[Rfam]
RNA sequence: ACAAGUUUGAACCCAAAGCAAAAGCACUUAUGGUGUGGCCCUGUCAGAUUCCAACAAAUCUGUGAAUUCUGCA
Numbered sequence: 001a002c003a004a005g006u007u008u009g010a011a012c013c014c015a016a017a018g019c020a021a022a023a024g025c026a027c028u029u030a031u032g033g034u035g036u037g038g039c040c041c042u043g044u045c046a047g048a049u050u051c052c053a054a055c056a057a058a059u060c061u062g063u064g065a066a067u068u069c070u071g072c073a
Stems, first nucleotide, its partner, number of pairs: 009041001013038002018072003022068002024036003045062006

Shown here is a 73-nucleotide RNA sequence from Alligator mississippiensis, a member of the family "Mammalian CPEB3 ribozyme". Pairs were carried over by alignment from the consensus structure, which is taken from published work. The organism belongs to Alligator, within Eukaryota. The match comes from Rfam's covariance-model search (38 bits).